This 140-nucleotide RNA sequence from Alcanivorax borkumensis belongs to the Rfam family "Guanidine-I riboswitch aptamer". Gene Ontology term of the family: regulation of gene expression.

RNA sequence: CCAAUAGAAAGCUAGGGUUCCGAUCGGCUACGCCAGCAGCCGAUGCCUGGUCCGAGAGCCUUCGACCUUCUUGGCGCCGAUAGAUUGGCAGCAGCAUCUACCGGCAGGGGGUUACACGGCGGGACAAAAGCCCGGGAGGA
Numbered sequence: 001c002c003a004a005u006a007g008a009a010a011g012c013u014a015g016g017g018u019u020c021c022g023a024u025c026g027g028c029u030a031c032g033c034c035a036g037c038a039g040c041c042g043a044u045g046c047c048u049g050g051u052c053c054g055a056g057a058g059c060c061u062u063c064g065a066c067c068u069u070c071u072u073g074g075c076g077c078c079g080a081u082a083g084a085u086u087g088g089c090a091g092c093a094g095c096a097u098c099u100a101c102c103g104g105c106a107g108g109g110g111g112u113u114a115c116a117c118g119g120c121g122g123g124a125c126a127a128a129a130g131c132c133c134g135g136g137a138g139g140a
Base pairs, nucleotide, nucleotide: 007063008062009061011059012058015053016052020050021049022047023044024043025042026041027040028039064113065112066111067110068109069108070107071106115135117138121133122132123131